[Rfam]
RNA sequence: AUCUAUGAAAUAGCGCCAGAACCUAUAGCGAUAUAGGUUGACGAGGACGAAGUUAUCGAAUUUUCGGCGGAUGCUUCGCGGUAGACACUACCGAUAUCUGACAGAGAAAUCCAAAAAGUGAUUUUUGGGACAAGGCUGUCAGGGUGUAUUAAG
Numbered sequence: 001a002u003c004u005a006u007g008a009a010a011u012a013g014c015g016c017c018a019g020a021a022c023c024u025a026u027a028g029c030g031a032u033a034u035a036g037g038u039u040g041a042c043g044a045g046g047a048c049g050a051a052g053u054u055a056u057c058g059a060a061u062u063u064u065c066g067g068c069g070g071a072u073g074c075u076u077c078g079c080g081g082u083a084g085a086c087a088c089u090a091c092c093g094a095u096a097u098c099u100g101a102c103a104g105a106g107a108a109a110u111c112c113a114a115a116a117a118g119u120g121a122u123u124u125u126u127g128g129g130a131c132a133a134g135g136c137u138g139u140c141a142g143g144g145u146g147u148a149u150u151a152a153g
Stems, first nucleotide, its partner, number of pairs: 020039008048078005056067004079093006097143007111128007
Description:
glmS glucosamine-6-phosphate activated ribozyme aptamer: a 153-nucleotide RNA from Proteiniclasticum ruminis. Rfam links the family to the GO terms regulation of gene expression and catalytic activity. It is annotated as a riboswitch. Rfam's curators write: This entry contains a glucosamine-6-phosphate activated ribozyme that is found in the mRNA for GlmS. GlmS is an enzyme that uses fructose-6-phosphate and glutamine to generate glucosamine-6-phosphate. The ribozyme catalyses self cleavage of the glmS mRNA that is thought to regulate GlmS activity. Pairs were carried over by alignment from the consensus structure, which is taken from published work. The match comes from Rfam's covariance-model search (121 bits).